[Rfam]
RNA sequence: AAAAAUAUUGUCACAUCAUGUCGUAUAUGCUAGGGAAUAUGGCCCAAGUGUUUCUACCCACUACCGUAAAAAGUGGACUACGAGUGAAGAUGUUGCUUUC
Numbered sequence: 001a002a003a004a005a006u007a008u009u010g011u012c013a014c015a016u017c018a019u020g021u022c023g024u025a026u027a028u029g030c031u032a033g034g035g036a037a038u039a040u041g042g043c044c045c046a047a048g049u050g051u052u053u054c055u056a057c058c059c060a061c062u063a064c065c066g067u068a069a070a071a072a073g074u075g076g077a078c079u080a081c082g083a084g085u086g087a088a089g090a091u092g093u094u095g096c097u098u099u100c
Base pairs, nucleotide, nucleotide: 021083022082023081024080025079029049030048031047033045034044035043058076059075060074061073062072
Annotation: Purine riboswitch aptamer: a 100-nucleotide RNA sequence from Gottfriedia endophytica. The match comes from Rfam's covariance-model search (74 bits). The family's consensus secondary structure is taken from published work. Taxonomically the source falls in Gottfriedia (Bacteria, Bacillati, Bacillota, Bacilli).